[Rfam]
RNA sequence: GAAGUGCGAACCAAGCGUGCGCGGCGGUCGCCGUGCUGUUAGACUUGGAGCGGAUAGUCGCAAGACUGUCCUGCA
Numbered sequence: 001g002a003a004g005u006g007c008g009a010a011c012c013a014a015g016c017g018u019g020c021g022c023g024g025c026g027g028u029c030g031c032c033g034u035g036c037u038g039u040u041a042g043a044c045u046u047g048g049a050g051c052g053g054a055u056a057g058u059c060g061c062a063a064g065a066c067u068g069u070c071c072u073g074c075a
Stems, first nucleotide, its partner, number of pairs: 011048005022033004052071008